[Rfam]
RNA sequence: GAUGUCUGGUCGACGGAAUUGCAUCGGCAGGAGUGGAGGACCCGAGCAGUACGGCGUGACCGGUGAUGCCGGACACGCCUUGGGGUGAAGCCGCCGCGGCGGCCGGGCGUCUUCGCCGUCCGAACCCGACAGGUCACCCUUCACAGGCGGCUGACGAAGGGUUG
Number, nucleotide and partner (000 for none) at each position: 001g000002a000003u000004g000005u031006c030007u029008g028009g000010u000011c000012g000013a000014c000015g000016g000017a000018a000019u000020u000021g000022c000023a000024u000025c000026g000027g000028c008029a007030g006031g005032a000033g144034u143035g142036g141037a140038g139039g000040a000041c000042c000043c082044g081045a080046g079047c000048a000049g000050u000051a000052c000053g000054g000055c000056g000057u000058g000059a000060c000061c000062g000063g000064u000065g000066a000067u000068g000069c000070c000071g000072g000073a000074c000075a000076c000077g000078c000079c046080u045081u044082g043083g127084g126085g125086u000087g000088a000089a000090g000091c102092c101093g100094c099095c000096g000097c000098g000099g094100c093101g092102g091103c000104c000105g121106g120107g119108c118109g000110u000111c000112u000113u000114c000115g000116c000117c000118g108119u107120c106121c105122g000123a000124a000125c085126c084127c083128g000129a000130c000131a000132g000133g000134u000135c000136a000137c000138c000139c038140u037141u036142c035143a034144c033145a000146g000147g000148c000149g000150g000151c000152u000153g000154a000155c000156g000157a000158a000159g000160g000161g000162u000163u000164g000
Shown here is a 164-nucleotide sequence from Streptomyces pristinaespiralis, a member of the family "c-di-AMP riboswitch aptamer (ydaO/yuaA leader)". A search with the family's covariance model found it, with a score of 38 bits. Gene Ontology terms of the family: regulation of gene expression and cyclic-di-AMP binding.